Shown here is a 183-nucleotide RNA sequence from Roseiflexus castenholzii, a member of the family "SAM riboswitch aptamer (S box leader)". NCBI's taxonomy places the organism under Bacteria, Chloroflexales, Roseiflexaceae, Roseiflexus, Roseiflexus castenholzii. Rfam's curators write: The SAM riboswitch is found upstream of a number of genes which code for proteins involved in methionine or cysteine biosynthesis in Gram-positive bacteria. The SAM riboswitch acts at the level of transcription termination control. The predicted structure consists of a complex stem-loop region followed by a single stem loop terminator region. An alternative and mutually exclusive form involves bases in the 3' segment of helix 1 with those in the 5' region of helix 5 to form a structure termed the anti-terminator form.
[Rfam]
RNA sequence: CUCUUAUCCAGAGAGGCGGAGGGACCGGCCCGAUGAAGCCUCGGCAACCACCAGUUGAGGAUGAGCAGUGCAGGCGCCAACACCAGCAUCUGUUGUGAUGCUUCUCUACUGGCGACUACCCUGUCACUUCUUAUCCCGCCUGGAAGGUGCCAAUUCCAGCAGAGUGUAUCUGGAAGAUGAGAG
Numbered sequence: 001c002u003c004u005u006a007u008c009c010a011g012a013g014a015g016g017c018g019g020a021g022g023g024a025c026c027g028g029c030c031c032g033a034u035g036a037a038g039c040c041u042c043g044g045c046a047a048c049c050a051c052c053a054g055u056u057g058a059g060g061a062u063g064a065g066c067a068g069u070g071c072a073g074g075c076g077c078c079a080a081c082a083c084c085a086g087c088a089u090c091u092g093u094u095g096u097g098a099u100g101c102u103u104c105u106c107u108a109c110u111g112g113c114g115a116c117u118a119c120c121c122u123g124u125c126a127c128u129u130c131u132u133a134u135c136c137c138g139c140c141u142g143g144a145a146g147g148u149g150c151c152a153a154u155u156c157c158a159g160c161a162g163a164g165u166g167u168a169u170c171u172g173g174a175a176g177a178u179g180a181g182a183g
Stems, first nucleotide, its partner, number of pairs: 001183008013042005021031003025159001027157002043151004048147002051143004155175001160172004